[Rfam]
RNA sequence: CUCUAAAAGUGUUACCUUUAUAAUUUGUCUCGCUUGAAAGAACGUUUAUAUUUAUGCUACACCAUUUCGAUGUCUCUUGUUGUACCUCGUCCUGUUUACAUAAGUAAUAGCAAUAAAUUUCAGCUUUAAUUGUCUUCAUAAGAAGACUUAAAUUACUCUUGAAUAAAUAGGAAGAUAUUAUGUCUACUACAACUACUGGUACAGUAAAAUGGUUUAACGAAUCUAAAGGUUUUGGUUUCAUCGAGCAAGAAAAUGGUCCUGACGUUUUUGCACAUUUCUCUGCAAUCGUAAGCGAUGGUUUUAAAACUCUUGCUGAAGGCCAACGUGUAUCUUUCUCAGUAACUACUGGUCAGAAAGGUCCACAAGCUGAGAACAUCCAAGCUAUCUAAUUUGCAUUGCAAAUUGUAGUUUUAAUCUCACUAGAGAUUAGAAAAAGGCAAACUAAGGUUUGCCUUUUUUAA
Number, nucleotide and partner (000 for none) at each position: 001c000002u000003c000004u020005a019006a018007a017008a000009g015010u000011g000012u000013u000014a000015c009016c000017u007018u006019u005020a004021u000022a000023a000024u000025u000026u248027g000028u000029c245030u244031c243032g242033c000034u000035u000036g000037a000038a000039a000040g239041a238042a000043c000044g237045u000046u235047u234048a000049u229050a000051u227052u226053u000054a000055u000056g000057c000058u000059a000060c000061a000062c000063c219064a000065u217066u216067u000068c000069g215070a214071u000072g213073u212074c211075u000076c000077u000078u182079g181080u180081u000082g178083u177084a176085c000086c000087u000088c000089g000090u000091c000092c170093u169094g168095u167096u166097u165098a164099c000100a000101u000102a120103a119104g118105u117106a000107a000108u000109a000110g000111c000112a000113a000114u000115a000116a000117a105118u104119u103120u102121c000122a000123g000124c000125u000126u000127u000128a000129a000130u000131u000132g000133u000134c000135u000136u000137c000138a000139u000140a000141a000142g000143a000144a000145g000146a000147c000148u000149u000150a000151a000152a000153u000154u000155a000156c000157u000158c000159u000160u000161g000162a000163a000164u098165a097166a096167a095168u094169a093170g092171g000172a000173a000174g000175a000176u084177a083178u082179u000180a080181u079182g078183u000184c199185u198186a197187c000188u195189a000190c000191a000192a000193c000194u000195a188196c000197u186198g185199g184200u000201a000202c000203a000204g000205u000206a000207a000208a000209a000210u000211g074212g073213u072214u070215u069216a066217a065218c000219g063220a000221a000222u000223c000224u000225a000226a052227a051228g000229g049230u000231u000232u000233u000234g047235g046236u000237u044238u041239c040240a000241u000242c032243g031244a030245g029246c000247a000248a026249g000250a000251a000252a000253a340254u339255g000256g337257u000258c000259c000260u000261g269262a268263c000264g000265u000266u000267u000268u262269u261270g000271c000272a330273c000274a328275u327276u000277u325278c000279u000280c000281u322282g321283c319284a000285a000286u000287c312288g311289u000290a000291a308292g000293c000294g307295a000296u305297g000298g000299u000300u000301u000302u000303a000304a000305a296306a000307c294308u291309c000310u000311u288312g287313c000314u000315g000316a000317a000318g000319g283320c000321c282322a281323a000324c000325g277326u000327g275328u274329a000330u272331c000332u000333u000334u000335c000336u000337c256338a000339g254340u253341a000342a000343c000344u000345a000346c000347u362348g361349g360350u000351c000352a000353g000354a000355a000356a000357g000358g000359u000360c349361c348362a347363c000364a411365a410366g409367c408368u407369g406370a000371g404372a000373a000374c000375a000376u000377c000378c000379a000380a000381g000382c000383u000384a000385u000386c000387u000388a000389a000390u000391u000392u000393g000394c000395a000396u000397u000398g000399c000400a000401a000402a000403u000404u371405g000406u369407a368408g367409u366410u365411u364412u000413a000414a000415u426416c425417u424418c000419a000420c000421u000422a000423g000424a417425g416426a415427u000428u000429a000430g000431a458432a457433a456434a455435a454436g453437g452438c451439a450440a449441a448442c447443u000444a000445a000446g000447g442448u441449u440450u439451g438452c437453c436454u435455u434456u433457u432458u431459u000460a000461a000
Rfam assigns this 461-nucleotide RNA from Pseudoalteromonas denitrificans to the family "cspA thermoregulator".
A search with the family's covariance model found it, with a score of 81 bits.
By type it is an RNA thermoregulator.
Its family is annotated with regulation of translation and response to temperature stimulus in the Gene Ontology.
The literature on the family includes a 2010 paper in Mol Cell by Giuliodori et al., "The cspA mRNA is a thermosensor that modulates translation of the cold-shock protein CspA".